[Rfam]
RNA sequence: GCUUUUUAAGCACCUGGUAUAGCAACUGAGAAACCAGUUUCCUUCAGAGAGC
Numbered sequence: 001g002c003u004u005u006u007u008a009a010g011c012a013c014c015u016g017g018u019a020u021a022g023c024a025a026c027u028g029a030g031a032a033a034c035c036a037g038u039u040u041c042c043u044u045c046a047g048a049g050a051g052c
Stems, first nucleotide, its partner, number of pairs: 001052007009044001012039001014037005020025001
The family of this 52-nucleotide RNA sequence from Pteropus vampyrus is "MAT2A 3'UTR stem loop C". The literature on the family includes a 2011 paper in Genome Res by Parker et al., "New families of human regulatory RNA structures identified by comparative analysis of vertebrate genomes". A search with the family's covariance model found it, with a score of 55 bits.